[Rfam]
RNA sequence: AACCCAUCAAGAGCGGCCGAGAGAUCUGGAUCGACGACGCCGCAGCAACCAUCCGAUGGACCCGGCCUGUGCCGGGGCUCGGAACGGUGCUACCGCCAGAAGCGAUGGAGA
Numbered sequence: 001a002a003c004c005c006a007u008c009a010a011g012a013g014c015g016g017c018c019g020a021g022a023g024a025u026c027u028g029g030a031u032c033g034a035c036g037a038c039g040c041c042g043c044a045g046c047a048a049c050c051a052u053c054c055g056a057u058g059g060a061c062c063c064g065g066c067c068u069g070u071g072c073c074g075g076g077g078c079u080c081g082g083a084a085c086g087g088u089g090c091u092a093c094c095g096c097c098a099g100a101a102g103c104g105a106u107g108g109a110g111a
Stems, first nucleotide, its partner, number of pairs: 004108005013043005021032002026099004044091004049087002052083004095103001
Dot-bracket structure: ...(((((....(((((...((...[[[[.))......)))))((((.((.((((........................))))..))))))...(]]]]...))))))...
The record is a 111-nucleotide RNA sequence from Zhihengliuella halotolerans, which matches "SAM riboswitch aptamer (S box leader)" in Rfam.